Description:
Rfam assigns this 103-nucleotide RNA sequence from Desulfacinum hydrothermale to the family "TPP riboswitch aptamer (THI element)". The match comes from Rfam's covariance-model search (66 bits). From the family's description: Vitamin B(1) in its active form thiamin pyrophosphate (TPP) is an essential coenzyme that is synthesised by coupling of pyrimidine and thiazole moieties in bacteria.
RNA sequence: GCGAUCGCCAGGGGGCGUCCUUUCCCAGGGGAAAGGGCUGAGAAGUUACCCCUCGAACCUGAUCCAGGUCAUGCUGGCGGAGGGAUUGGCGAGCGGAUGGCGA
Numbered sequence: 001g002c003g004a005u006c007g008c009c010a011g012g013g014g015g016c017g018u019c020c021u022u023u024c025c026c027a028g029g030g031g032a033a034a035g036g037g038c039u040g041a042g043a044a045g046u047u048a049c050c051c052c053u054c055g056a057a058c059c060u061g062a063u064c065c066a067g068g069u070c071a072u073g074c075u076g077g078c079g080g081a082g083g084g085a086u087u088g089g090c091g092a093g094c095g096g097a098u099g100g101c102g103a
Base pairs, nucleotide, nucleotide: 006091007090008089009088010087011052012051013050014049017038018037019036020035021034022033023032024031058083059082060081064077065076066075067074